The record is a 121-nucleotide RNA from Glycine max, which matches "MIR1520 microRNA precursor family" in Rfam. Gene Ontology terms of the family: miRNA-mediated post-transcriptional gene silencing and RISC complex. Its Rfam clan is "MIR1520 microRNA precursor clan". The source organism's lineage runs through Eukaryota, Viridiplantae, Tracheophyta, Magnoliopsida and Glycine subgen. Soja.
[Rfam]
RNA sequence: UUAUACAUGAAUAUUGAUUGUCAUGUGUCACAUUCUGAUUGGAUGUUGACUCUAUGAACGAUGAAAAUGUAUUGUUGUUGUCAACGUCCAAUUAGAACGCAACACGUGACAGUCAUCGUCG
Numbered sequence: 001u002u003a004u005a006c007a008u009g010a011a012u013a014u015u016g017a018u019u020g021u022c023a024u025g026u027g028u029c030a031c032a033u034u035c036u037g038a039u040u041g042g043a044u045g046u047u048g049a050c051u052c053u054a055u056g057a058a059c060g061a062u063g064a065a066a067a068u069g070u071a072u073u074g075u076u077g078u079u080g081u082c083a084a085c086g087u088c089c090a091a092u093u094a095g096a097a098c099g100c101a102a103c104a105c106g107u108g109a110c111a112g113u114c115a116u117c118g119u120c121g
Stems, first nucleotide, its partner, number of pairs: 020110004025105002031099001033097004038092003